[Rfam]
RNA sequence: GACAAUCGACACGGGGGCUGGUGCAUCGCACCGGCUGAGAGGGGCUCAUGCCCCGACCGAUUGAACGUGAAUCCGGACAAUGCCGGCGCACGGACGUCGUCGAUUCCCGUGC
Numbered sequence: 001g002a003c004a005a006u007c008g009a010c011a012c013g014g015g016g017g018c019u020g021g022u023g024c025a026u027c028g029c030a031c032c033g034g035c036u037g038a039g040a041g042g043g044g045c046u047c048a049u050g051c052c053c054c055g056a057c058c059g060a061u062u063g064a065a066c067g068u069g070a071a072u073c074c075g076g077a078c079a080a081u082g083c084c085g086g087c088g089c090a091c092g093g094a095c096g097u098c099g100u101c102g103a104u105u106c107c108c109g110u111g112c
Stems, first nucleotide, its partner, number of pairs: 007099004012059003016054001017035007042053004066092004073086004
Annotation: TPP riboswitch aptamer (THI element): a 112-nucleotide RNA from Bifidobacterium cuniculi. On this family, see Sudarsan et al., RNA 2003: "Metabolite-binding RNA domains are present in the genes of eukaryotes". The match comes from Rfam's covariance-model search (59 bits).